[Rfam]
Small nucleolar RNA SNORD103/SNORD85: an 88-nucleotide sequence from Podarcis muralis. A reference for the family is Huttenhofer et al. (2001), "RNomics: an experimental approach that identifies 201 candidates for novel, small, non-messenger RNAs in mouse", EMBO J. Rfam classes the family as a C/D-box small nucleolar RNA. The match comes from Rfam's covariance-model search (74 bits).
RNA sequence: UCUAGCAAUGAUGACACUCUUGCCCUCACUGAGAACAUUGGUUCUGUAAUGAGAGUUUUUUUAAAGUACUCAUUUGCUCUGAGCCAGA
Numbered sequence: 001u002c003u004a005g006c007a008a009u010g011a012u013g014a015c016a017c018u019c020u021u022g023c024c025c026u027c028a029c030u031g032a033g034a035a036c037a038u039u040g041g042u043u044c045u046g047u048a049a050u051g052a053g054a055g056u057u058u059u060u061u062u063a064a065a066g067u068a069c070u071c072a073u074u075u076g077c078u079c080u081g082a083g084c085c086a087g088a
Base pairs, nucleotide, nucleotide: 001088002087003086005084006083